Shown here is a 283-nucleotide sequence from Pseudomonas graminis, a member of the family "rne-II RNA". The base pairs follow the family's consensus structure, which is taken from published work. A search with the family's covariance model found it, with a score of 275 bits.

RNA sequence: AUACGUGUGGGGUGGAGACGCACAACCGUCGGACUGUGUAGCACAAGGCUUUAUUCAAGACGCUUCAUAUCGUCCGCUACCGAUGGUUGAUUCCUCCUCCUGACAAAGCUUUUGCUGACAGGGUGUCAUUUGUCACCACAGCAAGCAGGAACGUCGUCGCGACUCGGCCCCGCUGGCCGAACCUCGUUAGACACUGGAGUGUUCAAGCACUCCUGACGUGCCCUGACACCGACCGUGAGAAGUCGUGUGUGCCGAACGCCGUUUCCGGCAGCCCGGAAACCGA
Numbered sequence: 001a002u003a004c005g006u007g008u009g010g011g012g013u014g015g016a017g018a019c020g021c022a023c024a025a026c027c028g029u030c031g032g033a034c035u036g037u038g039u040a041g042c043a044c045a046a047g048g049c050u051u052u053a054u055u056c057a058a059g060a061c062g063c064u065u066c067a068u069a070u071c072g073u074c075c076g077c078u079a080c081c082g083a084u085g086g087u088u089g090a091u092u093c094c095u096c097c098u099c100c101u102g103a104c105a106a107a108g109c110u111u112u113u114g115c116u117g118a119c120a121g122g123g124u125g126u127c128a129u130u131u132g133u134c135a136c137c138a139c140a141g142c143a144a145g146c147a148g149g150a151a152c153g154u155c156g157u158c159g160c161g162a163c164u165c166g167g168c169c170c171c172g173c174u175g176g177c178c179g180a181a182c183c184u185c186g187u188u189a190g191a192c193a194c195u196g197g198a199g200u201g202u203u204c205a206a207g208c209a210c211u212c213c214u215g216a217c218g219u220g221c222c223c224u225g226a227c228a229c230c231g232a233c234c235g236u237g238a239g240a241a242g243u244c245g246u247g248u249g250u251g252c253c254g255a256a257c258g259c260c261g262u263u264u265c266c267g268g269c270a271g272c273c274c275g276g277a278a279a280c281c282g283a
Stems, first nucleotide, its partner, number of pairs: 014097004023089010036077003040050003059074004098150005152218004156192003159187004165179005196213007226250004230245004261280007
Dot-bracket structure: .............((((.....((((((((((...(((.(((.....)))........((((........)))))))..))))))))))....))))(((((...........................................))))).(((((((((((..(((((.....)))))....))))..)))...(((((((....))))))).)))).......((((((((........)))).))))..........(((((((......)))))))...